[Rfam]
RNA: Glycine riboswitch aptamer
RNA sequence: AUGAAGAUGGCAGGGAGAGACUGCGCCGACAGGCGCGGCACCGAAGGAGCAAGUCUUGACGGUCCGCCGGCCGCGAGAUCAAACUCUCAGGUAAAAGUACCGUCAUCCGACG
Numbered sequence: 001a002u003g004a005a006g007a008u009g010g011c012a013g014g015g016a017g018a019g020a021c022u023g024c025g026c027c028g029a030c031a032g033g034c035g036c037g038g039c040a041c042c043g044a045a046g047g048a049g050c051a052a053g054u055c056u057u058g059a060c061g062g063u064c065c066g067c068c069g070g071c072c073g074c075g076a077g078a079u080c081a082a083a084c085u086c087u088c089a090g091g092u093a094a095a096a097g098u099a100c101c102g103u104c105a106u107c108c109g110a111c112g
Stems, first nucleotide, its partner, number of pairs: 006107006013101002021038004040092003043088002047086003053079006